A member of the RNA family "Glycine riboswitch aptamer" from Methylobacterium sp. BTF04, 96 nucleotides long. The source organism's lineage runs through Bacteria, Alphaproteobacteria, Hyphomicrobiales, Methylobacteriaceae and Methylobacterium.
[Rfam]
RNA sequence: CAAUCUGGAGAGAGGCGCCUAACAGCGUCCACCGAAGGAGAAAUCCCAUAGGCCGCGUGCCGAUGGGAGAAGCUCUCAGGUAACCGCGACAGAUGG
Numbered sequence: 001c002a003a004u005c006u007g008g009a010g011a012g013a014g015g016c017g018c019c020u021a022a023c024a025g026c027g028u029c030c031a032c033c034g035a036a037g038g039a040g041a042a043a044u045c046c047c048a049u050a051g052g053c054c055g056c057g058u059g060c061c062g063a064u065g066g067g068a069g070a071a072g073c074u075c076u077c078a079g080g081u082a083a084c085c086g087c088g089a090c091a092g093a094u095g096g
Stems, first nucleotide, its partner, number of pairs: 001096001003094005014029004031081003034077002038075003044068006